Rfam assigns this 480-nucleotide sequence from Pectobacterium atrosepticum to the family "Soft rot Enterobacteriaceae Rev 42 5'UTR". The family's RNA type in Rfam is cis-regulatory element. Rfam links the family to the GO term cellular response to starvation. Rfam describes the family as follows. From bacteria cultured under starvation conditions. It is one of the family's seed sequences.
RNA sequence: CAGUAAGAUGGAGAGGACGGCGAGUGGCCAAAUGAGGUAGCUGAGCCAUUGAAGCCAGCUUGGAAUGUGGCUCAUGAUCUGAGGAAUCCAAUCAUUCAAUUGGGUGAAAAGCCACCAAAAAGCGCCGCCCAUCAGCACGAUAUUCAUGAGUAAAGGAAGAAUAACGAAACGCCGGAUGCCCGGCAGAGAGAUCAAGCGCCAUCCGGCAAAAAAAUAGUGUACGCCGCUGCGAGUGUGGUCUGCGGUGUUGCUGUGAGACGGUUUUUCGAAAGACGGUGGUUUUUCUGGAAACGAUGAUUUUUCUGAAGACAUGGUGCCGAUAUACUCAGUCAUUUGUUUGUUAAGGCAUCAUAUCGGGAUGAUCUUAUGCUGACUAGCCCAUAUUUGGAUGAAAAAGCAGCAAAAAAGUGCGUUGUACCUAUCUUUAUUGUCAUUAAAGUACCGUGCAGGCUUGCACUUGUGUACUCAGGCAAAUAGAGU
Numbered sequence: 001c002a003g004u005a006a007g008a009u010g011g012a013g014a015g016g017a018c019g020g021c022g023a024g025u026g027g028c029c030a031a032a033u034g035a036g037g038u039a040g041c042u043g044a045g046c047c048a049u050u051g052a053a054g055c056c057a058g059c060u061u062g063g064a065a066u067g068u069g070g071c072u073c074a075u076g077a078u079c080u081g082a083g084g085a086a087u088c089c090a091a092u093c094a095u096u097c098a099a100u101u102g103g104g105u106g107a108a109a110a111g112c113c114a115c116c117a118a119a120a121a122g123c124g125c126c127g128c129c130c131a132u133c134a135g136c137a138c139g140a141u142a143u144u145c146a147u148g149a150g151u152a153a154a155g156g157a158a159g160a161a162u163a164a165c166g167a168a169a170c171g172c173c174g175g176a177u178g179c180c181c182g183g184c185a186g187a188g189a190g191a192u193c194a195a196g197c198g199c200c201a202u203c204c205g206g207c208a209a210a211a212a213a214a215u216a217g218u219g220u221a222c223g224c225c226g227c228u229g230c231g232a233g234u235g236u237g238g239u240c241u242g243c244g245g246u247g248u249u250g251c252u253g254u255g256a257g258a259c260g261g262u263u264u265u266u267c268g269a270a271a272g273a274c275g276g277u278g279g280u281u282u283u284u285c286u287g288g289a290a291a292c293g294a295u296g297a298u299u300u301u302u303c304u305g306a307a308g309a310c311a312u313g314g315u316g317c318c319g320a321u322a323u324a325c326u327c328a329g330u331c332a333u334u335u336g337u338u339u340g341u342u343a344a345g346g347c348a349u350c351a352u353a354u355c356g357g358g359a360u361g362a363u364c365u366u367a368u369g370c371u372g373a374c375u376a377g378c379c380c381a382u383a384u385u386u387g388g389a390u391g392a393a394a395a396a397g398c399a400g401c402a403a404a405a406a407a408g409u410g411c412g413u414u415g416u417a418c419c420u421a422u423c424u425u426u427a428u429u430g431u432c433a434u435u436a437a438a439g440u441a442c443c444g445u446g447c448a449g450g451c452u453u454g455c456a457c458u459u460g461u462g463u464a465c466u467c468a469g470g471c472a473a474a475u476a477g478a479g480u
Base pairs, nucleotide, nucleotide: 007133008132009131010130011129016128018127019126020125021124022123023042024041025040027038028037029036043073044072045071046070047069048068049067055063056062057061074095075094076093077092078091081088082087103116104115105114106113135447136446137445138444139443141441142440143439144438146434147433148432149431150428151427152426153425154424155423156422158420159419161416162415163414164413165412166411169409170408171207172206173205174204175203176202177201178200181198182197186193187192214254215253216252217251218250219249221248222247223246224245225244226243227242229239230238296364297363298362299361301359302358303357304356305355306354311352312351313350314349315348316347317346318345322341323340324339327336328335329334368402369401370400371399372398374397375396379388380387381386450471451470452469453468454467456463457462